[Rfam]
RNA sequence: CUUACAGACUUCUUUGGCAUUCUGUCCACCUCCUUCUAUACAUAUCUGCAUGUAUAUAUAUAUGCCAUUUUGUGUGGAAGAAGGAGGUGGGUAUACUGCCAAUAGAGAUCUGUUAG
Numbered sequence: 001c002u003u004a005c006a007g008a009c010u011u012c013u014u015u016g017g018c019a020u021u022c023u024g025u026c027c028a029c030c031u032c033c034u035u036c037u038a039u040a041c042a043u044a045u046c047u048g049c050a051u052g053u054a055u056a057u058a059u060a061u062a063u064g065c066c067a068u069u070u071u072g073u074g075u076g077g078a079a080g081a082a083g084g085a086g087g088u089g090g091g092u093a094u095a096c097u098g099c100c101a102a103u104a105g106a107g108a109u110c111u112g113u114u115a116g
Base pairs, nucleotide, nucleotide: 011106014102015101016100017099018098019097023093024092025091026090027089028088029087030086031085032084033083034082035081036080037079
This 116-nucleotide RNA from Capsella rubella belongs to the Rfam family "MIR394 microRNA precursor family". It scores 98 bits against the family's covariance model. The source organism's lineage runs through Eukaryota, Streptophytina, Spermatophyta, Gunneridae and Capsella. The family has 19 seed sequences and 724 matches in Rfam 15.1.